[Rfam]
RNA: Fluoride riboswitch aptamer (crcB RNA motif)
RNA sequence: CUUAUCAGUGGCAAUGGUGUCUGCCGGAAACCGCCCUUUAACGAGGGAUGAUGGCGCCUGUUUGAUC
Numbered sequence: 001c002u003u004a005u006c007a008g009u010g011g012c013a014a015u016g017g018u019g020u021c022u023g024c025c026g027g028a029a030a031c032c033g034c035c036c037u038u039u040a041a042c043g044a045g046g047g048a049u050g051a052u053g054g055c056g057c058c059u060g061u062u063u064g065a066u067c
Base pairs, nucleotide, nucleotide: 010025011024012023013022016058017057018056019055020054021053034047035046036045037044038043